[Rfam]
RNA sequence: GCCGAGCUCAGUAACGAGAGCCUGUAACCCGAGUGGGGGCAUUGGGUGGUUUGGACGCUGGGUUACGCCUUUGGGUCUGGGUGUAAUUGGGGCGUAUGGCUAGCUCGCCCGUCCCAAGUUGGGUGGUGAGAUGUGCGGCUCGGGCGAAGGCCUGAGUUUGCGCCUCUCCUAAAGUGGAGGAGACCGCGUGAGGCUGGCUUCACAGAGCAGCGAAUACCUCCCGCUCUCAACGGUGGGAGGAUAACGGGCCGCCGCACCAUGUACCCUUUACGGCCCACUGGCAUACCAUUAACGAACAACCACCCU
Numbered sequence: 001g002c003c004g005a006g007c008u009c010a011g012u013a014a015c016g017a018g019a020g021c022c023u024g025u026a027a028c029c030c031g032a033g034u035g036g037g038g039g040c041a042u043u044g045g046g047u048g049g050u051u052u053g054g055a056c057g058c059u060g061g062g063u064u065a066c067g068c069c070u071u072u073g074g075g076u077c078u079g080g081g082u083g084u085a086a087u088u089g090g091g092g093c094g095u096a097u098g099g100c101u102a103g104c105u106c107g108c109c110c111g112u113c114c115c116a117a118g119u120u121g122g123g124u125g126g127u128g129a130g131a132u133g134u135g136c137g138g139c140u141c142g143g144g145c146g147a148a149g150g151c152c153u154g155a156g157u158u159u160g161c162g163c164c165u166c167u168c169c170u171a172a173a174g175u176g177g178a179g180g181a182g183a184c185c186g187c188g189u190g191a192g193g194c195u196g197g198c199u200u201c202a203c204a205g206a207g208c209a210g211c212g213a214a215u216a217c218c219u220c221c222c223g224c225u226c227u228c229a230a231c232g233g234u235g236g237g238a239g240g241a242u243a244a245c246g247g248g249c250c251g252c253c254g255c256a257c258c259a260u261g262u263a264c265c266c267u268u269u270a271c272g273g274c275c276c277a278c279u280g281g282c283a284u285a286c287c288a289u290u291a292a293c294g295a296a297c298a299a300c301c302a303c304c305c306u
Base pairs, nucleotide, nucleotide: 001040002039003038004023006021007020008019009018028037029036030035044305045304046303047302048301049300050299052298053297056294057293060289061287062286063285068281069280072277073276074275075274076273077272079266080265081264082263083262084261085260090257092255101251103249104248105247106246107245109240110239112238113237114236115235116234118231119230120229121228122227123226125224128168129167130166131165133163134162135161136160137159138157139156140155141154142153143152144151145150169174176221177220178219179218180217187212188211189210194205195204196203

A member of the RNA family "Plant signal recognition particle RNA" from Elaeis guineensis, 306 nucleotides long. The family's RNA type in Rfam is non-coding RNA gene. A search with the family's covariance model found it, with a score of 215 bits. Gene Ontology terms of the family: signal recognition particle, endoplasmic reticulum targeting and SRP-dependent cotranslational protein targeting to membrane, signal sequence recognition. Pairs were carried over by alignment from the consensus structure, which is taken from published work.